[Rfam]
RNA sequence: GGGCAGGGCCGUGACUGGCGCGCUUGGAUGGGAUCGACCAUCGGGGAGCGGCCCGCCGACUGAGUGCCGUGCGCCUGGGCCGACCCG
Numbered sequence: 001g002g003g004c005a006g007g008g009c010c011g012u013g014a015c016u017g018g019c020g021c022g023c024u025u026g027g028a029u030g031g032g033a034u035c036g037a038c039c040a041u042c043g044g045g046g047a048g049c050g051g052c053c054c055g056c057c058g059a060c061u062g063a064g065u066g067c068c069g070u071g072c073g074c075c076u077g078g079g080c081c082g083a084c085c086c087g
Stems, first nucleotide, its partner, number of pairs: 003057001006054007015045002017075005028041004066080003
Shown here is an 87-nucleotide RNA from Streptomyces sp. YIM 130001, a member of the family "ZMP/ZTP riboswitch aptamer (pfl RNA motif)". Gene Ontology terms of the family: one-carbon metabolic process and regulation of purine nucleotide biosynthetic process.